Rfam assigns this 267-nucleotide sequence from Takifugu bimaculatus to the family "isrG Hfq binding RNA". The family's consensus secondary structure was predicted with RNAalifold. The organism belongs to Takifugu, within Eukaryota. A search with the family's covariance model found it, with a score of 106 bits. The literature on the family includes a 2008 paper in Nucleic Acids Res by Padalon-Brauch et al., "Small RNAs encoded within genetic islands of Salmonella typhimurium show host-induced expression and role in virulence".
RNA sequence: CUGUAGCUGCUGUAGCUGCUGCUGUAGCUGUAGCUGCUGCUGUAGCUGCUGCUGCUGUAGCUGCUGCAGCUGUAGCUGCUGCAGCUGUAGCUGCAGCUGUAGCUGCUGCAGCUGUAGCUGCUGCAGCUGUAGCUGCUGCAGCUGUAGCUGCUGUAGCUGCUGCUGUAGCUGUAGCUGCUGUAGCUGCUGUAGCUGUAGCUGCUGCUGUAGCUGCUGCUGUAGCUGUAGCUGCUGUAGCUGCUGUAGCUGCUGCUGUAGCUGUAGCUG
Numbered sequence: 001c002u003g004u005a006g007c008u009g010c011u012g013u014a015g016c017u018g019c020u021g022c023u024g025u026a027g028c029u030g031u032a033g034c035u036g037c038u039g040c041u042g043u044a045g046c047u048g049c050u051g052c053u054g055c056u057g058u059a060g061c062u063g064c065u066g067c068a069g070c071u072g073u074a075g076c077u078g079c080u081g082c083a084g085c086u087g088u089a090g091c092u093g094c095a096g097c098u099g100u101a102g103c104u105g106c107u108g109c110a111g112c113u114g115u116a117g118c119u120g121c122u123g124c125a126g127c128u129g130u131a132g133c134u135g136c137u138g139c140a141g142c143u144g145u146a147g148c149u150g151c152u153g154u155a156g157c158u159g160c161u162g163c164u165g166u167a168g169c170u171g172u173a174g175c176u177g178c179u180g181u182a183g184c185u186g187c188u189g190u191a192g193c194u195g196u197a198g199c200u201g202c203u204g205c206u207g208u209a210g211c212u213g214c215u216g217c218u219g220u221a222g223c224u225g226u227a228g229c230u231g232c233u234g235u236a237g238c239u240g241c242u243g244u245a246g247c248u249g250c251u252g253c254u255g256u257a258g259c260u261g262u263a264g265c266u267g
Stems, first nucleotide, its partner, number of pairs: 003262005009256002014251003018247003021229008031219004036214002054070007071110005079102003083098005111208002114205005120199002123196006130189004135184005141148002153178002159175005165169001234241002